RNA sequence: AUACCACAAGGCAGCGUAAGUGGGCUGUGGUGCUAUUUAAGUUAGGUCUAAGCCCAGGAAAGUCCCCGGGCCUCUUUCCGUAGAGAUGCGGCCUUGGAAACAAGUGAGCUUCGAGCGUAGGAGUCCAUUUCACCCCUGUGUGAAAGGGCUGAGACAAGUGUGGAGCCCUUCGGACUCUAGCCGAAGUAGAUUGGCCGCUUACACAGUUAUUCACGCGGUCCAUUGGACUAAUUGAACGGGGCUUAUGAUCUUGUGGUG
Numbered sequence: 001a002u003a004c005c006a007c008a009a010g011g012c013a014g015c016g017u018a019a020g021u022g023g024g025c026u027g028u029g030g031u032g033c034u035a036u037u038u039a040a041g042u043u044a045g046g047u048c049u050a051a052g053c054c055c056a057g058g059a060a061a062g063u064c065c066c067c068g069g070g071c072c073u074c075u076u077u078c079c080g081u082a083g084a085g086a087u088g089c090g091g092c093c094u095u096g097g098a099a100a101c102a103a104g105u106g107a108g109c110u111u112c113g114a115g116c117g118u119a120g121g122a123g124u125c126c127a128u129u130u131c132a133c134c135c136c137u138g139u140g141u142g143a144a145a146g147g148g149c150u151g152a153g154a155c156a157a158g159u160g161u162g163g164a165g166c167c168c169u170u171c172g173g174a175c176u177c178u179a180g181c182c183g184a185a186g187u188a189g190a191u192u193g194g195c196c197g198c199u200u201a202c203a204c205a206g207u208u209a210u211u212c213a214c215g216c217g218g219u220c221c222a223u224u225g226g227a228c229u230a231a232u233u234g235a236a237c238g239g240g241g242c243u244u245a246u247g248a249u250c251u252u253g254u255g256g257u258g
Stems, first nucleotide, its partner, number of pairs: 002258010014216004019211001022055004060244003064241004079090004093104004108187003115181002118179004136173003146168004156161001218228004
Dot-bracket structure: .((((((((((..[[[[.[..((((..........................))))....(((.((((...........((((....))))..((((....))))...(((....((.((((..............(((.......((((......(....)...))))..)))..))))))...))).......................].]]]].((((...)))).........)))))))....))))))))))
Shown here is a 258-nucleotide sequence from Camellia sinensis, a member of the family "RNase MRP". Gene Ontology terms of the family: rRNA processing, ribonuclease MRP complex and ribonuclease MRP activity. It scores 54 bits against the family's covariance model. On this family, see Schmitt et al., FASEB J 1993: "Secondary structure of RNase MRP RNA as predicted by phylogenetic comparison". It is annotated as a ribozyme.